[Rfam]
RNA sequence: AGAAUAAAUCGUUCUAUCGCUUUUUGUUAAUUCAGAAAGAGGAAAGUCCGGACAGCAAAGAGCGCCAUACCUUAUGAAAAUAAGGGUGUCACUUCUUAAGUGAUAACAGAUAGUGCUACAGAAAAUAAACCGUCCGCCUCAGGCGGAUAAGGGUGAAAAGGCGAGGUAAGAGCUCACCGCUCAACGGGUAACCAAUGAGGCUAAGAAAACCUUUUGGGCUGCAAGGUCAAAUAAACCGAAAUUAGAGUUGCUCGCUCUUUCGGAGGGUAGACUGCUUAGAUAAAUGAUAGAAUUUCGAUUUUUAUCGAAAACAGAAUCUGGCUUAUAGAUUUAUUUAUUUU
Numbered sequence: 001a002g003a004a005u006a007a008a009u010c011g012u013u014c015u016a017u018c019g020c021u022u023u024u025u026g027u028u029a030a031u032u033c034a035g036a037a038a039g040a041g042g043a044a045a046g047u048c049c050g051g052a053c054a055g056c057a058a059a060g061a062g063c064g065c066c067a068u069a070c071c072u073u074a075u076g077a078a079a080a081u082a083a084g085g086g087u088g089u090c091a092c093u094u095c096u097u098a099a100g101u102g103a104u105a106a107c108a109g110a111u112a113g114u115g116c117u118a119c120a121g122a123a124a125a126u127a128a129a130c131c132g133u134c135c136g137c138c139u140c141a142g143g144c145g146g147a148u149a150a151g152g153g154u155g156a157a158a159a160g161g162c163g164a165g166g167u168a169a170g171a172g173c174u175c176a177c178c179g180c181u182c183a184a185c186g187g188g189u190a191a192c193c194a195a196u197g198a199g200g201c202u203a204a205g206a207a208a209a210c211c212u213u214u215u216g217g218g219c220u221g222c223a224a225g226g227u228c229a230a231a232u233a234a235a236c237c238g239a240a241a242u243u244a245g246a247g248u249u250g251c252u253c254g255c256u257c258u259u260u261c262g263g264a265g266g267g268u269a270g271a272c273u274g275c276u277u278a279g280a281u282a283a284a285u286g287a288u289a290g291a292a293u294u295u296c297g298a299u300u301u302u303u304a305u306c307g308a309a310a311a312c313a314g315a316a317u318c319u320g321g322c323u324u325a326u327a328g329a330u331u332u333a334u335u336u337a338u339u340u341u
Stems, first nucleotide, its partner, number of pairs: 002336009011326001012292007020039007044324003048321005053221004060253004065217003069213001070085005086107001087105007108212002113210002116205002130152002132148007160178002163175003179201001180199004186193002225273004236263005244258005

Annotation:
Bacterial RNase P class A: a 341-nucleotide RNA. Ribonuclease P (RNase P) is a ubiquitous endoribonuclease, found in archaea, bacteria and eukarya as well as chloroplasts and mitochondria. Its best characterised activity is the generation of mature 5'-ends of tRNAs by cleaving the 5'-leader elements of precursor-tRNAs. Cellular RNase Ps are ribonucleoproteins. RNA from bacterial RNase Ps retains its catalytic activity in the absence of the protein subunit, i.e. it is a ribozyme.